[Rfam]
RNA sequence: AAUUUCCUUCGGGGCAGGGUGAAAUUCCCUACCGGCGGUGUUGAAGCAAUGCUUCUAAGUCCGUGACCCGUGCGGCGUCAGCCAAGCGGUGGAUCUGGUGUGAAUCCAGAGCCGACAGUGAAAGUCUGGAUGGGAGAAGGAAUCG
Numbered sequence: 001a002a003u004u005u006c007c008u009u010c011g012g013g014g015c016a017g018g019g020u021g022a023a024a025u026u027c028c029c030u031a032c033c034g035g036c037g038g039u040g041u042u043g044a045a046g047c048a049a050u051g052c053u054u055c056u057a058a059g060u061c062c063g064u065g066a067c068c069c070g071u072g073c074g075g076c077g078u079c080a081g082c083c084a085a086g087c088g089g090u091g092g093a094u095c096u097g098g099u100g101u102g103a104a105u106c107c108a109g110a111g112c113c114g115a116c117a118g119u120g121a122a123a124g125u126c127u128g129g130a131u132g133g134g135a136g137a138a139g140g141a142a143u144c145g
Stems, first nucleotide, its partner, number of pairs: 004142007017029003031125002033114002035064004059112002068089002094110005116128003

Shown here is a 145-nucleotide RNA sequence from Oceanobacillus piezotolerans, a member of the family "FMN riboswitch aptamer (RFN element)". Rfam's curators write: The RFN element is a highly conserved domain that is found frequently in the 5'-untranslated regions of prokaryotic mRNAs that encode for flavin mononucleotide (FMN) biosynthesis and transport proteins. The family's consensus secondary structure is taken from published work. The match comes from Rfam's covariance-model search (114 bits).